[Rfam]
Nucleotides: 136
Stems, first nucleotide, its partner, number of pairs: 003060006016046006023039002073129004078125001081122002093112004
Number, partner (000 for none) and nucleotide at each position: 001000g002000u003060g004059c005058a006057u007056a008055c009000u010000a011000g012000u013000a014000g015000a016046c017045c018044c019043u020042u021041u022000c023039u024038g025000g026000c027000u028000g029000u030000g031000c032000c033000g034000u035000g036000g037000u038024c039023a040000c041021a042020a043019a044018g045017g046016g047000g048000g049000g050000a051000c052000a053000g054000u055008g056007u057006a058005u059004g060003c061000a062000a063000a064000a065000g066000c067000a068000a069000a070000g071000c072000c073129c074128a075127a076126g077000u078125u079000g080000c081122c082121a083000g084000c085000a086000g087000a088000c089000u090000c091000a092000u093112u094111c095110a096109g097000g098000c099000a100000g101000c102000u103000c104000u105000c106000u107000g108000a109096c110095u111094g112093a113000u114000u115000g116000a117000g118000c119000u120000g121082u122081g123000g124000u125078a126076c127075u128074u129073g130000c131000a132000c133000a134000g135000a136000a